[Rfam]
RNA sequence: GAAAGUUAAGAAACUGUUUCUUAACUUUUAAAUAACAAAGCUAAGAACCGAUUCUUAAAGUCCUUAUUUAAUAACCGGUUCUUAGCUUUUUUAGUUAAAAGUUAAAAGACAGUUUCUUAACUUCC
Numbered sequence: 001g002a003a004a005g006u007u008a009a010g011a012a013a014c015u016g017u018u019u020c021u022u023a024a025c026u027u028u029u030a031a032a033u034a035a036c037a038a039a040g041c042u043a044a045g046a047a048c049c050g051a052u053u054c055u056u057a058a059a060g061u062c063c064u065u066a067u068u069u070a071a072u073a074a075c076c077g078g079u080u081c082u083u084a085g086c087u088u089u090u091u092u093a094g095u096u097a098a099a100a101g102u103u104a105a106a107a108g109a110c111a112g113u114u115u116c117u118u119a120a121c122u123u124c125c
Stems, first nucleotide, its partner, number of pairs: 001125001003123017021105011033093003037089003041085007
A member of the RNA family "MIR9563 microRNA precursor family" from Brassica carinata, 125 nucleotides long. The match comes from Rfam's covariance-model search (98 bits).